Ruegeria cis2 sRNA: a 156-nucleotide RNA sequence from Gemmobacter aquatilis. Rfam links the family to the GO term regulation of gene expression. The match comes from Rfam's covariance-model search (70 bits).

RNA sequence: AUCGAGCUGUUAUGCGGGUUGUAGUUCAGGAAGAUGAACCCGCGCCCUUGGUCGAUGGUGUGGAACAGCGGAUUCCAGUCGAACCAUUGCAGGAUGCGGCUGGGGGUGUUGUUGGCGACGAACAUCUUGCCCGAGGCGAUCAUGUUGGCGCGCAUG
Numbered sequence: 001a002u003c004g005a006g007c008u009g010u011u012a013u014g015c016g017g018g019u020u021g022u023a024g025u026u027c028a029g030g031a032a033g034a035u036g037a038a039c040c041c042g043c044g045c046c047c048u049u050g051g052u053c054g055a056u057g058g059u060g061u062g063g064a065a066c067a068g069c070g071g072a073u074u075c076c077a078g079u080c081g082a083a084c085c086a087u088u089g090c091a092g093g094a095u096g097c098g099g100c101u102g103g104g105g106g107u108g109u110u111g112u113u114g115g116c117g118a119c120g121a122a123c124a125u126c127u128u129g130c131c132c133g134a135g136g137c138g139a140u141c142a143u144g145u146u147g148g149c150g151c152g153c154a155u156g
Base pairs, nucleotide, nucleotide: 002037003036004035008034010032011031013029016026017025040058041057042056043054044053046051066156067155068153069152070151073083074082075081090147091146092145094143095142096141100136101135103132104131106128108126110124112121113120114119